This 173-nucleotide RNA from Planococcus lenghuensis belongs to the Rfam family "glmS glucosamine-6-phosphate activated ribozyme aptamer". Rfam describes the family as follows. This entry contains a glucosamine-6-phosphate activated ribozyme that is found in the mRNA for GlmS. GlmS is an enzyme that uses fructose-6-phosphate and glutamine to generate glucosamine-6-phosphate. The match comes from Rfam's covariance-model search (116 bits). The family's consensus secondary structure is taken from published work. For this family Rfam cites "Control of gene expression by a natural metabolite-responsive ribozyme" (Winkler et al., Nature, 2004). Rfam links the family to the GO terms regulation of gene expression and catalytic activity.

RNA sequence: AAACAAUCACAAGCGCCUGUGCUGGGGAAAUCGGACGGAAUCAGCUUCCCAGCAGACGAGGAGGAGGAGUAUCGAAUUUUCGGCGGAUACCUCCCGGCCGUGGCCCGGUCGUUAUGGUCAGCUGUAAAACAGCAGAGCAAUCUGCUGCACAAAACGGCGGAUCAGGUCCAUGA
Numbered sequence: 001a002a003a004c005a006a007u008c009a010c011a012a013g014c015g016c017c018u019g020u021g022c023u024g025g026g027g028a029a030a031u032c033g034g035a036c037g038g039a040a041u042c043a044g045c046u047u048c049c050c051a052g053c054a055g056a057c058g059a060g061g062a063g064g065a066g067g068a069g070u071a072u073c074g075a076a077u078u079u080u081c082g083g084c085g086g087a088u089a090c091c092u093c094c095c096g097g098c099c100g101u102g103g104c105c106c107g108g109u110c111g112u113u114a115u116g117g118u119c120a121g122c123u124g125u126a127a128a129a130c131a132g133c134a135g136a137g138c139a140a141u142c143u144g145c146u147g148c149a150c151a152a153a154a155c156g157g158c159g160g161a162u163c164a165g166g167u168c169c170a171u172g173a
Base pairs, nucleotide, nucleotide: 020054021053022052023051024050025049026048027047063094064093065092066091067090072083073082074081075080095111096110097109098108099107100106116163117162118161119160121158122157130147131146132145133144134143135142136141